[Rfam]
RNA sequence: CGUGCCGGGGUGGGCAGGCCCUGCGGCCAACUAACCCUAAUGGCGGCCGCGCCCCUCACGCUCGCCCGCUGUUUUACUCGCUGACUUUCAGCGGGCAAGGGGAGCGGCCCGGGGAAGAGGGUGGUGGGGGGGGGAAAAGGGUUCCGACCUCAAAAAAAGCCAGCGAUGGGGUCCGCACCCCGGCCCACCCUGGGGUCCCUGUCCCUUCUCCGCAGCCGGGGAUGCUCCCGCCUUCGCCCCUCGUGGAGGCCGCGGUCGGCAGGCUCAGCGCCACUACCGCCGCGAAGAGUUCGUCUCUGUCAGCCUCGGCGGAGCCGGGAGCAGCGGGCCGGCCCGCCCGCCCUGGGCAGCCGGGGGACCCCAGCAGAGCAAACAGGGGCGGCGCUGCCGGGCGCUGAGCAGCCGCAGCUCCCUGAGACGUGGAGUGCGCGGCCGGCGCCGCCCCGACACCC
Numbered sequence: 001c002g003u004g005c006c007g008g009g010g011u012g013g014g015c016a017g018g019c020c021c022u023g024c025g026g027c028c029a030a031c032u033a034a035c036c037c038u039a040a041u042g043g044c045g046g047c048c049g050c051g052c053c054c055c056u057c058a059c060g061c062u063c064g065c066c067c068g069c070u071g072u073u074u075u076a077c078u079c080g081c082u083g084a085c086u087u088u089c090a091g092c093g094g095g096c097a098a099g100g101g102g103a104g105c106g107g108c109c110c111g112g113g114g115a116a117g118a119g120g121g122u123g124g125u126g127g128g129g130g131g132g133g134g135a136a137a138a139g140g141g142u143u144c145c146g147a148c149c150u151c152a153a154a155a156a157a158a159g160c161c162a163g164c165g166a167u168g169g170g171g172u173c174c175g176c177a178c179c180c181c182g183g184c185c186c187a188c189c190c191u192g193g194g195g196u197c198c199c200u201g202u203c204c205c206u207u208c209u210c211c212g213c214a215g216c217c218g219g220g221g222a223u224g225c226u227c228c229c230g231c232c233u234u235c236g237c238c239c240c241u242c243g244u245g246g247a248g249g250c251c252g253c254g255g256u257c258g259g260c261a262g263g264c265u266c267a268g269c270g271c272c273a274c275u276a277c278c279g280c281c282g283c284g285a286a287g288a289g290u291u292c293g294u295c296u297c298u299g300u301c302a303g304c305c306u307c308g309g310c311g312g313a314g315c316c317g318g319g320a321g322c323a324g325c326g327g328g329c330c331g332g333c334c335c336g337c338c339c340g341c342c343c344u345g346g347g348c349a350g351c352c353g354g355g356g357g358a359c360c361c362c363a364g365c366a367g368a369g370c371a372a373a374c375a376g377g378g379g380c381g382g383c384g385c386u387g388c389c390g391g392g393c394g395c396u397g398a399g400c401a402g403c404c405g406c407a408g409c410u411c412c413c414u415g416a417g418a419c420g421u422g423g424a425g426u427g428c429g430c431g432g433c434c435g436g437c438g439c440c441g442c443c444c445c446g447a448c449a450c451c452c
Stems, first nucleotide, its partner, number of pairs: 004184009015175001017173006051105002054102002064096008080164004085159001086157003190364007212337002215333005224322007233313005251284005257279003262272003286298004377444010403432004410425001412423002